[Rfam]
RNA sequence: AUAUGCUCGGCGAACGGUUUUCACCGUGAUCUGAGAGUUUAGGCUUCUGAGAUCAUUGUGAAGGCCACUUGCCGUGCAAAA
Numbered sequence: 001a002u003a004u005g006c007u008c009g010g011c012g013a014a015c016g017g018u019u020u021u022c023a024c025c026g027u028g029a030u031c032u033g034a035g036a037g038u039u040u041a042g043g044c045u046u047c048u049g050a051g052a053u054c055a056u057u058g059u060g061a062a063g064g065c066c067a068c069u070u071g072c073c074g075u076g077c078a079a080a081a
Base pairs, nucleotide, nucleotide: 009073010072011071012070016066017065018064019063020062021061022060023059024058027055028054029053030052031051032050034048035047036046037044038043
RNA: mir-81 microRNA precursor family
Organism: Nippostrongylus brasiliensis